[Rfam]
RNA sequence: GUUAACCGUCGAGUUUGCCGUUCGGCAAACGUCGCUCAUUGACGUGUGCGCUACCGCGCACGAAUUCGCCCGCCUCCAAAAUUGAUAUUUUGUUCGGCUUUCGAAUUUAUAG
Numbered sequence: 001g002u003u004a005a006c007c008g009u010c011g012a013g014u015u016u017g018c019c020g021u022u023c024g025g026c027a028a029a030c031g032u033c034g035c036u037c038a039u040u041g042a043c044g045u046g047u048g049c050g051c052u053a054c055c056g057c058g059c060a061c062g063a064a065u066u067c068g069c070c071c072g073c074c075u076c077c078a079a080a081a082u083u084g085a086u087a088u089u090u091u092g093u094u095c096g097g098c099u100u101u102c103g104a105a106u107u108u109a110u111a112g
Stems, first nucleotide, its partner, number of pairs: 011033002013030007046061006064106005072098003077092006
The record is a 112-nucleotide sequence from Treponema vincentii, which matches "TD-1 RNA" in Rfam. Rfam 15.1 lists 147 matches to the family in 9 species. NCBI's taxonomy places the organism under Bacteria, Spirochaetia, Treponematales, Treponema, Treponema vincentii. Rfam classes the family as a cis-regulatory element. The base pairs follow the family's consensus structure, which is taken from published work. For this family Rfam cites "Identification of 22 candidate structured RNAs in bacteria using the CMfinder comparative genomics pipeline" (Weinberg et al., Nucleic Acids Res, 2007).